[Rfam]
RNA: Manganese Mn2+ riboswitch aptamer (yybP-ykoY)
Organism: Paraburkholderia sediminicola
RNA sequence: ACCCCUGUCUUUGGGGAGUAGCCGGCUUCUACCCAGAAGCGCCUGCGUCAACAUACUCGGUCGCGCAGACCGUGGUGCAGGCAGCCCUUUGGUUGGCAAGACCAUCGACACACCACGCGACCGGUCGGGCGCGAUGGUGUGUCGCGGUUUUCCGCCCGACCUUGAGC
Numbered sequence: 001a002c003c004c005c006u007g008u009c010u011u012u013g014g015g016g017a018g019u020a021g022c023c024g025g026c027u028u029c030u031a032c033c034c035a036g037a038a039g040c041g042c043c044u045g046c047g048u049c050a051a052c053a054u055a056c057u058c059g060g061u062c063g064c065g066c067a068g069a070c071c072g073u074g075g076u077g078c079a080g081g082c083a084g085c086c087c088u089u090u091g092g093u094u095g096g097c098a099a100g101a102c103c104a105u106c107g108a109c110a111c112a113c114c115a116c117g118c119g120a121c122c123g124g125u126c127g128g129g130c131g132c133g134a135u136g137g138u139g140u141g142u143c144g145c146g147g148u149u150u151u152c153c154g155c156c157c158g159a160c161c162u163u164g165a166g167c
Base pairs, nucleotide, nucleotide: 025040026039027038041082042081043080044079045078046077047076048075049074050073058072059071060070061069062068